[Rfam]
RNA sequence: AAGCUACCUCGUUAGGUGAGGCUCCUGUACGGAGAUACGCUGCUGCCCAAAAAUGUCCAAAGACGCCAAUGGGUCAACAGAAACCAUCGAUUUAAGGUGGUUUUUAAUGCAGCUGGGUCAUCCACCCUAUGCCGUGCAGUGCUAAAGCUCUACGAAUGGGGCCGUGU
Numbered sequence: 001a002a003g004c005u006a007c008c009u010c011g012u013u014a015g016g017u018g019a020g021g022c023u024c025c026u027g028u029a030c031g032g033a034g035a036u037a038c039g040c041u042g043c044u045g046c047c048c049a050a051a052a053a054u055g056u057c058c059a060a061a062g063a064c065g066c067c068a069a070u071g072g073g074u075c076a077a078c079a080g081a082a083a084c085c086a087u088c089g090a091u092u093u094a095a096g097g098u099g100g101u102u103u104u105u106a107a108u109g110c111a112g113c114u115g116g117g118u119c120a121u122c123c124a125c126c127c128u129a130u131g132c133c134g135u136g137c138a139g140u141g142c143u144a145a146a147g148c149u150c151u152a153c154g155a156a157u158g159g160g161g162c163c164g165u166g167u
Stems, first nucleotide, its partner, number of pairs: 007161004011153002013095001015149003020143003025139008039113005045074005054065004080104004086098003115127003
RNA: M-box riboswitch aptamer (ykoK leader)